This 77-nucleotide RNA sequence from Cinara cedri belongs to the Rfam family "mir-10 microRNA precursor family". Pairs were carried over by alignment from the consensus structure, which was predicted with PFOLD. Rfam 15.1 lists 3,853 matches to the family in 853 species. Its family is annotated with miRNA-mediated post-transcriptional gene silencing and RISC complex in the Gene Ontology. The organism belongs to Cinara, within Eukaryota. On this family, see Lee and Ambros, Science 2001: "An extensive class of small RNAs in Caenorhabditis elegans".

RNA sequence: UUGCUGUGACCCGUAGAUCCGAACUUGUGUCACAAAAUGUUUAAUAUCACAAGCUCGUUUCUAGAGGACACAGUUAC
Numbered sequence: 001u002u003g004c005u006g007u008g009a010c011c012c013g014u015a016g017a018u019c020c021g022a023a024c025u026u027g028u029g030u031c032a033c034a035a036a037a038u039g040u041u042u043a044a045u046a047u048c049a050c051a052a053g054c055u056c057g058u059u060u061c062u063a064g065a066g067g068a069c070a071c072a073g074u075u076a077c
Base pairs, nucleotide, nucleotide: 003074004073005072006071007070010067011066015062016061017060020057021056022055024053025052026051027050028049029048